This 112-nucleotide RNA sequence from Streptomyces malaysiensis belongs to the Rfam family "Glycine riboswitch aptamer".
RNA sequence: UGAAUCCGCGCGGGAGAGUCCUUGGUCACCGGCAUCCAUGCCGGGCGUCCAGGGCGCCGAAGGAGCAAGCCCUCCCUUGAAUCUCUCAGGCCCCUGAUACCGCGCGGACGAG
Numbered sequence: 001u002g003a004a005u006c007c008g009c010g011c012g013g014g015a016g017a018g019u020c021c022u023u024g025g026u027c028a029c030c031g032g033c034a035u036c037c038a039u040g041c042c043g044g045g046c047g048u049c050c051a052g053g054g055c056g057c058c059g060a061a062g063g064a065g066c067a068a069g070c071c072c073u074c075c076c077u078u079g080a081a082u083c084u085c086u087c088a089g090g091c092c093c094c095u096g097a098u099a100c101c102g103c104g105c106g107g108a109c110g111a112g
Stems, first nucleotide, its partner, number of pairs: 006107008020054006056091003059087002063085003069078001